Shown here is a 149-nucleotide RNA from Oceanobacillus sp. J11TS1, a member of the family "PyrR binding site". The literature on the family includes a 2001 paper in Nucleic Acids Res by Bonner et al., "Molecular recognition of pyr mRNA by the Bacillus subtilis attenuation regulatory protein PyrR". About the family: This family represents the PyrR binding site and terminator structure. It is annotated as a cis-regulatory element.
[Rfam]
RNA sequence: GGUACCUUUAAAUCAGUCCAGAGAGGCUGACAAGGACAGCGCGAAAUAUAAUGCUUCACUCACUGAUACCCUGUAUGAAGGGUGUCUUCCGGUGUGCAUUAUAGAGAAAAAGCUUCUUGUCAGAGAUUGGACAAGGAGCUUUUUUUCUU
Numbered sequence: 001g002g003u004a005c006c007u008u009u010a011a012a013u014c015a016g017u018c019c020a021g022a023g024a025g026g027c028u029g030a031c032a033a034g035g036a037c038a039g040c041g042c043g044a045a046a047u048a049u050a051a052u053g054c055u056u057c058a059c060u061c062a063c064u065g066a067u068a069c070c071c072u073g074u075a076u077g078a079a080g081g082g083u084g085u086c087u088u089c090c091g092g093u094g095u096g097c098a099u100u101a102u103a104g105a106g107a108a109a110a111a112g113c114u115u116c117u118u119g120u121c122a123g124a125g126a127u128u129g130g131a132c133a134a135g136g137a138g139c140u141u142u143u144u145u146u147c148u149u
Base pairs, nucleotide, nucleotide: 005035006034007033008032013030014029015028016027017026018025047103048102049101050100051099052098053097054096107144108143109142110141111140112139113138114137115136116135117134118133119132120131